Nucleotides: 383
Stems, first nucleotide, its partner, number of pairs: 006024006025381004033361004039341002044068006053061002075337004080111002085106003089102001091100003115132005135333011153318001157314004165301004171294003176288005181202006203265002208259002214253003219243007227236001267280005347356002363375004
Number, partner (000 for none) and nucleotide at each position: 001000g002000a003000u004000a005000a006024a007023g008022g009021g010020g011019g012000u013000g014000a015000g016000a017000a018000a019011c020010c021009c022008c023007c024006u025381c026380g027379c028378c029000g030000u031000a032000a033361a034360c035359c036358c037000a038000a039341g040340g041000u042000u043000u044068c045067c046066u047065g048064g049063g050000u051000c052000a053061a054060g055000u056000u057000a058000a059000u060054c061053u062000u063049c064048c065047c066046a067045g068044g069000g070000u071000u072000a073000g074000c075337c076336g077335g078334a079000a080111c081110c082000u083000a084000a085106g086105c087104c088000g089102a090000g091100g092099c093098c094000g095000a096000a097000a098093g099092g100091c101000g102089u103000a104087g105086g106085u107000g108000a109000u110081g111080g112000a113000a114000a115132g116131c117130a118129g119128g120000u121000u122000a123000a124000u125000a126000u127000u128119c129118c130117u131116g132115c133000g134000c135333c136332a137331u138330c139329u140328u141327g142326u143325a144324g145323a146000c147000g148000u149000u150000g151000a152000a153318c154000c155000g156000a157314g158313g159312a160311a161000g162000g163000a164000c165301g166300g167299a168298g169000a170000a171294a172293g173292c174000u175000a176288g177287a178286c179285g180284a181202g182201c183200u184199g185198g186197c187000c188000g189000g190000u191000g192000g193000u194000u195000g196000u197186g198185c199184c200183a201182g202181u203265c204264c205000a206000a207000a208259g209258g210000c211000g212000u213000a214253g215252g216251g217000g218000u219243g220242u221241c222240g223239c224238g225237u226000a227236c228000g229000a230000u231000g232000a233000a234000a235000a236227g237225g238224c239223g240222c241221g242220g243219c244000a245000g246000u247000c248000a249000u250000c251216c252215c253214c254000g255000a256000g257000a258209c259208c260000c261000c262000a263000u264204g265203g266000c267280g268279u269278c270277c271276c272000g273000c274000a275000a276271g277270g278269g279268a280267u281000u282000a283000g284180u285179c286178g287177u288176u289000g290000a291000u292173g293172c294171u295000c296000g297000g298168c299167u300166u301165c302000c303000a304000a305000g306000a307000a308000a309000a310000g311160u312159u313158c314157c315000g316000c317000g318153g319000g320000g321000a322000g323145u324144c325143u326142a327141c328140a329139g330138g331137g332136u333135g334078u335077c336076c337075g338000u339000a340040c341039c342000g343000c344000a345000a346000a347356c348355c349000g350000a351000c352000a353000c354000a355348g356347g357000u358036g359035g360034g361033u362000g363375a364374g365373g366372a367000g368000a369000a370000a371000a372366u373365c374364c375363u376000a377000a378028g379027g380026c381025g382000c383000u

The record is a 383-nucleotide part of an RNA from Archangium sp. Cb G35, which matches "Bacterial large subunit ribosomal RNA" in Rfam. Lineage of the source: Bacteria > Myxococcota > Myxococcia > Cystobacterineae > Archangium. The base pairs follow the family's consensus structure, which is taken from published work.